[Rfam]
Nucleotides: 054
Base pairs, nucleotide, nucleotide: 013043015040016039020036021035022034023033024032025031
Number, partner (000 for none) and nucleotide at each position: 001000u002000g003000u004000c005000c006000a007000c008000a009000g010000u011000a012000c013043u014000g015040u016039a017000a018000g019000u020036c021035g022034c023033u024032u025031u026000g027000g028000a029000u030000a031025a032024a033023a034022g035021c036020g037000u038000c039016u040015a041000a042000c043013a044000a045000a046000u047000g048000a049000c050000a051000u052000g053000u054000a
About this RNA: UnaL2 LINE 3' element: a 54-nucleotide RNA from Dissostichus mawsoni. A reference for the family is Baba et al. (2004), "Solution structure of an RNA stem-loop derived from the 3' conserved region of eel LINE UnaL2", RNA. The source organism's lineage runs through Eukaryota, Craniata, Euteleostomi, Eurypterygia and Dissostichus. About the family: The eel long interspersed element (LINE) UnaL2 and its partner short interspersed element (SINE) share a conserved 3' tail containing a stem-loop that is critical for their retrotransposition. Gene Ontology term of the family: transposition, RNA-mediated.